[Rfam]
RNA sequence: UGGGUCGGCCAGACGGUCGCGUCGCGGGAGACCGCGCCGAGGAACGUCCGGGCUCCGCAGGGCAGGGCGGUGGGUAACACCCACCCGGAGCAAUCCGCGAGACAGUGCCACAGAGAGCAGACCGCCGGCAGCAGUCGGUAAGGGUGAAAGGGUGGUGUAAGAGACCACCGGGGGCGCGGUGACGCGCCCCGCACGGUAAACCUCGCCCGGAGCAAGGCCAGACAGGGGAUGUUGACGCGGCCCGCCGAGUCCCCGGGUAGGCCGCUGGAGCGUCACGGCAACGUGACGCCGAGAGAGAUGACCGUCACCGGGGUUCGCCCCGGGACAGAACCCGGCGUAUCGGCCGGCCCAUUCG
Numbered sequence: 001u002g003g004g005u006c007g008g009c010c011a012g013a014c015g016g017u018c019g020c021g022u023c024g025c026g027g028g029a030g031a032c033c034g035c036g037c038c039g040a041g042g043a044a045c046g047u048c049c050g051g052g053c054u055c056c057g058c059a060g061g062g063c064a065g066g067g068c069g070g071u072g073g074g075u076a077a078c079a080c081c082c083a084c085c086c087g088g089a090g091c092a093a094u095c096c097g098c099g100a101g102a103c104a105g106u107g108c109c110a111c112a113g114a115g116a117g118c119a120g121a122c123c124g125c126c127g128g129c130a131g132c133a134g135u136c137g138g139u140a141a142g143g144g145u146g147a148a149a150g151g152g153u154g155g156u157g158u159a160a161g162a163g164a165c166c167a168c169c170g171g172g173g174g175c176g177c178g179g180u181g182a183c184g185c186g187c188c189c190c191g192c193a194c195g196g197u198a199a200a201c202c203u204c205g206c207c208c209g210g211a212g213c214a215a216g217g218c219c220a221g222a223c224a225g226g227g228g229a230u231g232u233u234g235a236c237g238c239g240g241c242c243c244g245c246c247g248a249g250u251c252c253c254c255g256g257g258u259a260g261g262c263c264g265c266u267g268g269a270g271c272g273u274c275a276c277g278g279c280a281a282c283g284u285g286a287c288g289c290c291g292a293g294a295g296a297g298a299u300g301a302c303c304g305u306c307a308c309c310g311g312g313g314u315u316c317g318c319c320c321c322g323g324g325a326c327a328g329a330a331c332c333c334g335g336c337g338u339a340u341c342g343g344c345c346g347g348c349c350c351a352u353u354c355g
Stems, first nucleotide, its partner, number of pairs: 001351010011340001012306007020039002023036005044338003048335005053212004060243004065208005070084005085099001086097004100203002105201002107197003122143002124139006151169006170192001171190008216263004225254006237245002270289008
RNA: Bacterial RNase P class A